[Rfam]
RNA sequence: ACGGAGCUCGACAAGGCCAAGGCCACACCGGAAGAGAAGGUGUGAUCUCCCGAGUCGAAACUCCUAGCACGGAUCACCGGAACCCACGCGGAGCUCAAGCCGCGAUACAGGCAGAAGCGUUGUGGGCCUGCGGAAUCACGAAAAGCGAAUGACGUGACAACCCCUUGGGUGGGGUUGCGCCCAUAGCGCAACGUGAGAACGCCGAGGCCACCCACACAACCCACCUCAGCACGCUUGGUAACCGGAAUCCGUGCUAGCGGGCGACGAGCCGUGACCGACGCAAGUGGGUCACGGAGCGUCGCCCGCUUCAUUUG
Numbered sequence: 001a002c003g004g005a006g007c008u009c010g011a012c013a014a015g016g017c018c019a020a021g022g023c024c025a026c027a028c029c030g031g032a033a034g035a036g037a038a039g040g041u042g043u044g045a046u047c048u049c050c051c052g053a054g055u056c057g058a059a060a061c062u063c064c065u066a067g068c069a070c071g072g073a074u075c076a077c078c079g080g081a082a083c084c085c086a087c088g089c090g091g092a093g094c095u096c097a098a099g100c101c102g103c104g105a106u107a108c109a110g111g112c113a114g115a116a117g118c119g120u121u122g123u124g125g126g127c128c129u130g131c132g133g134a135a136u137c138a139c140g141a142a143a144a145g146c147g148a149a150u151g152a153c154g155u156g157a158c159a160a161c162c163c164c165u166u167g168g169g170u171g172g173g174g175u176u177g178c179g180c181c182c183a184u185a186g187c188g189c190a191a192c193g194u195g196a197g198a199a200c201g202c203c204g205a206g207g208c209c210a211c212c213c214a215c216a217c218a219a220c221c222c223a224c225c226u227c228a229g230c231a232c233g234c235u236u237g238g239u240a241a242c243c244g245g246a247a248u249c250c251g252u253g254c255u256a257g258c259g260g261g262c263g264a265c266g267a268g269c270c271g272u273g274a275c276c277g278a279c280g281c282a283a284g285u286g287g288g289u290c291a292c293g294g295a296g297c298g299u300c301g302c303c304c305g306c307u308u309c310a311u312u313u314g
Stems, first nucleotide, its partner, number of pairs: 003064002006061001008058004015051002020048002024044006065256009077245004084238003088234003093230002099112003119220006125209005130202003136196005145189003149184003153179001158177007257306010269294008
The record is a 314-nucleotide RNA from Mycolicibacterium neoaurum, which matches "Mycobacterium smegmatis small RNA 1" in Rfam.
For this family Rfam cites "Ms1, a novel sRNA interacting with the RNA polymerase core in mycobacteria" (Hnilicova et al., Nucleic Acids Res, 2014).
Gene Ontology term of the family: RNA polymerase binding.
From the family's description: Mycobacterium smegmatis small RNA 1 is highly expressed during stationary phase of growth. Ms1 RNA directly interacts with RNA polymerase (RNAP), but in a different way than 6S, which is present in other bacteria. Ms1 does not require the presence of the main sigma factor for RNAP interaction. There is evidence that Ms1 RNA may function similar to 6S RNA in M. smegmatis which does not have 6S RNA.